[Rfam]
RNA sequence: CGGUGGGACACCCUUCCCCAACGAAGGGCGACUAUCUGUAAGGUUAGAGACA
Numbered sequence: 001c002g003g004u005g006g007g008a009c010a011c012c013c014u015u016c017c018c019c020a021a022c023g024a025a026g027g028g029c030g031a032c033u034a035u036c037u038g039u040a041a042g043g044u045u046a047g048a049g050a051c052a
Stems, first nucleotide, its partner, number of pairs: 011028006032047003036043002
RNA: serC leader